[Rfam]
RNA: Small nucleolar RNA SNORD14
RNA sequence: UGCAAAUGAUGAUGAAAUCAAGGCUUGUUUCUCUACAUUCUUAGUUGCCACCAAAGAGCUUUCGCCCUGCCAGGUUUGAGAGCUAAUGCUGCUAAUUCCUUCCUUGGAUGUGUGAGGGA
Dot-bracket structure: (.(......................................................((((((..............)))))).................................).)